[Rfam]
Nucleotides: 078
Stems, first nucleotide, its partner, number of pairs: 002046004007042003022033003
Number, partner (000 for none) and nucleotide at each position: 001000u002046g003045g004044u005043a006000c007042c008041g009040a010000g011000g012000a013000g014000c015000g016000c017000u018000g019000c020000a021000g022033c023032g024031g025000u026000c027000a028000a029000u030000u031024c032023c033022g034000u035000g036000a037000g038000g039000c040009u041008c042007g043005u044004a045003c046002c047000a048000a049000u050000g051000g052000a053000c054000a055000a056000c057000c058000c059000a060000a061000c062000a063000a064000c065000g066000g067000c068000g069000c070000u071000c072000u073000u074000u075000c076000a077000c078000u